Rfam assigns this 152-nucleotide RNA from Corymbia citriodora to the family "small nucleolar RNA snoR134". The literature on the family includes a 2009 paper in Nucleic Acids Res by Chen and Wu, "Mining small RNA sequencing data: a new approach to identify small nucleolar RNAs in Arabidopsis". A search with the family's covariance model found it, with a score of 91 bits. Rfam 15.1 lists 792 matches to the family in 228 species. It is annotated as an H/ACA-box small nucleolar RNA. The organism belongs to Corymbia citriodora, within Eukaryota.

RNA sequence: ACGCACGAUGCACCCCGGGCUUCUCCGAGUUUUCGAACGCUGACGAUGGCAAGCCCCAAUGCUCGUGCUAGAUCGAGGGGCCGUUCGUGUUGCAGUCUUGCUGCACUUGUGCGUCUGUAGCUUGGUCUGUGUCAAUUCAAACGGCUACAUCU
Numbered sequence: 001a002c003g004c005a006c007g008a009u010g011c012a013c014c015c016c017g018g019g020c021u022u023c024u025c026c027g028a029g030u031u032u033u034c035g036a037a038c039g040c041u042g043a044c045g046a047u048g049g050c051a052a053g054c055c056c057c058a059a060u061g062c063u064c065g066u067g068c069u070a071g072a073u074c075g076a077g078g079g080g081c082c083g084u085u086c087g088u089g090u091u092g093c094a095g096u097c098u099u100g101c102u103g104c105a106c107u108u109g110u111g112c113g114u115c116u117g118u119a120g121c122u123u124g125g126u127c128u129g130u131g132u133c134a135a136u137u138c139a140a141a142c143g144g145c146u147a148c149a150u151c152u
Stems, first nucleotide, its partner, number of pairs: 003068006010062002017056005022049002024046002080145006088134002091131005100121003